[Rfam]
RNA sequence: GGUUUCCGUUGGUGUAAAUCCAAUCACCUGAAUUUAAGAUGAUAAGAAAUUCUCCAUUGGUAACAAAUGGUUAUCCAUUAAGCGUUUUUUUUAU
Dot-bracket structure: ........((((.......))))...............................(((.((((((.....)))))).)).....)..........
RNA: Plastid-rps12 3UTR RNA
Organism: Anisodus acutangulus